[Rfam]
RNA sequence: CCGUGCUAGGUGGGGAAUUAGCGGUGCCCUGUACUUGCAAUCCGCUUCAGCAAGACUGAAUCCCUUCUCGAGGCUUCUCGUAUUGUAGAGUCUGCCUCAUGCACGUAGUGUUGACGUUUGGGUCCUGCGCAAUGGAAACCCAUGAACCAUGUCAGGUCCGGAAGGAAGCAGCAUUAAGUGGAUCAUUUCAUGUGCCGCGGGGCAGCCUAGGCUGAGCUGGCGACAUGAGUAACGUCUAUGUGCGGUCGUCGACGGAAGGUGCGCGG
Numbered sequence: 001c002c003g004u005g006c007u008a009g010g011u012g013g014g015g016a017a018u019u020a021g022c023g024g025u026g027c028c029c030u031g032u033a034c035u036u037g038c039a040a041u042c043c044g045c046u047u048c049a050g051c052a053a054g055a056c057u058g059a060a061u062c063c064c065u066u067c068u069c070g071a072g073g074c075u076u077c078u079c080g081u082a083u084u085g086u087a088g089a090g091u092c093u094g095c096c097u098c099a100u101g102c103a104c105g106u107a108g109u110g111u112u113g114a115c116g117u118u119u120g121g122g123u124c125c126u127g128c129g130c131a132a133u134g135g136a137a138a139c140c141c142a143u144g145a146a147c148c149a150u151g152u153c154a155g156g157u158c159c160g161g162a163a164g165g166a167a168g169c170a171g172c173a174u175u176a177a178g179u180g181g182a183u184c185a186u187u188u189c190a191u192g193u194g195c196c197g198c199g200g201g202g203c204a205g206c207c208u209a210g211g212c213u214g215a216g217c218u219g220g221c222g223a224c225a226u227g228a229g230u231a232a233c234g235u236c237u238a239u240g241u242g243c244g245g246u247c248g249u250c251g252a253c254g255g256a257a258g259g260u261g262c263g264c265g266g
Stems, first nucleotide, its partner, number of pairs: 001266006009057003012030004017025003034054005063259006072250003079244005085239005093231002097228005105221002107218003116212008124201006130192002133190005138183001140181004149174004157166003
RNA: Bacterial large signal recognition particle RNA
Organism: Savagea serpentis